tRNA: a 74-nucleotide RNA sequence from Sebaldella termitidis. A search with the family's covariance model found it, with a score of 65 bits. The family has 954 seed sequences and 5,335,975 matches in Rfam 15.1. The family's RNA type in Rfam is transfer RNA.
RNA sequence: GCCUAGAUAGCUCAGCUGGCUAGAGCAUGCGGUUCAUACCCGCAGGGUCGGAGGUUCGAGUCCUCUUCUAGGCA
Numbered sequence: 001g002c003c004u005a006g007a008u009a010g011c012u013c014a015g016c017u018g019g020c021u022a023g024a025g026c027a028u029g030c031g032g033u034u035c036a037u038a039c040c041c042g043c044a045g046g047g048u049c050g051g052a053g054g055u056u057c058g059a060g061u062c063c064u065c066u067u068c069u070a071g072g073c074a
Stems, first nucleotide, its partner, number of pairs: 001073007010026004028044005050066005